Bacterial RNase P class A: a 423-nucleotide RNA sequence from Bradyrhizobium sp. LMTR 3. NCBI's taxonomy places the organism under Bacteria, Pseudomonadota, Alphaproteobacteria, Hyphomicrobiales, Bradyrhizobium. The match comes from Rfam's covariance-model search (317 bits). Rfam classes the family as a ribozyme.
RNA sequence: UCAGUCGGCCGGACGGCCGCUCCCGCUAUGGUCGAAAGGCUGCGGGGGAGGAAAGUCCGGGCUCCAUCGACAUGCGGUGCCGGAUAACGUCCGGCGGGGGUAACCCCAGGGAAAGUGCCACAGAGAACGAACCGCCCUCCUUCGCCUUCGGGCUUCGGAGGGUAAGGGUGAAAAGGUGCGGUAAGAGCGCACCGCGUUUCCGGCAACGGAGACGGCAUGGCAAACCCCACCGGGAGCAAAACCGAAUAGGGACGGCAACGCGGGCUGUUCGCGAAAGCGAUAACGCCGCAGGGCUAUGUCAGGCCCGCCGUCCGGGUAGGUUGCUCGAGGCCAUGUGCGAACAUGGUCCCAGAGGAAUGGCCGUCACGUAUCAUUCGAAAGAAUGGUGCCCUACAGAACCCGGCUUACAGGCUGGCUGAUAUC
Numbered sequence: 001u002c003a004g005u006c007g008g009c010c011g012g013a014c015g016g017c018c019g020c021u022c023c024c025g026c027u028a029u030g031g032u033c034g035a036a037a038g039g040c041u042g043c044g045g046g047g048g049a050g051g052a053a054a055g056u057c058c059g060g061g062c063u064c065c066a067u068c069g070a071c072a073u074g075c076g077g078u079g080c081c082g083g084a085u086a087a088c089g090u091c092c093g094g095c096g097g098g099g100g101u102a103a104c105c106c107c108a109g110g111g112a113a114a115g116u117g118c119c120a121c122a123g124a125g126a127a128c129g130a131a132c133c134g135c136c137c138u139c140c141u142u143c144g145c146c147u148u149c150g151g152g153c154u155u156c157g158g159a160g161g162g163u164a165a166g167g168g169u170g171a172a173a174a175g176g177u178g179c180g181g182u183a184a185g186a187g188c189g190c191a192c193c194g195c196g197u198u199u200c201c202g203g204c205a206a207c208g209g210a211g212a213c214g215g216c217a218u219g220g221c222a223a224a225c226c227c228c229a230c231c232g233g234g235a236g237c238a239a240a241a242c243c244g245a246a247u248a249g250g251g252a253c254g255g256c257a258a259c260g261c262g263g264g265c266u267g268u269u270c271g272c273g274a275a276a277g278c279g280a281u282a283a284c285g286c287c288g289c290a291g292g293g294c295u296a297u298g299u300c301a302g303g304c305c306c307g308c309c310g311u312c313c314g315g316g317u318a319g320g321u322u323g324c325u326c327g328a329g330g331c332c333a334u335g336u337g338c339g340a341a342c343a344u345g346g347u348c349c350c351a352g353a354g355g356a357a358u359g360g361c362c363g364u365c366a367c368g369u370a371u372c373a374u375u376c377g378a379a380a381g382a383a384u385g386g387u388g389c390c391c392u393a394c395a396g397a398a399c400c401c402g403g404c405u406u407a408c409a410g411g412c413u414g415g416c417u418g419a420u421a422u423c
Base pairs, nucleotide, nucleotide: 001419002418003417004416005415006414007413008412009411010410011408012365013364014363015362016361017360018359020048021047022046023045024044025043026042053406054405055404057403058402059401060400061399062236063235064234065233075232076231077230078229079228080094081093082092083091084090095109096107097106098105099104110227111226115225116224117221118220119219132167133166134163135162136161137160138159139158140157175193176192177191178190179189180188194216195214196213197212198211199210200209201208202207240322241321242320243319250313251312252311253310254309255308291306292305293304294303295302329348330347331346332345333344334343335342336341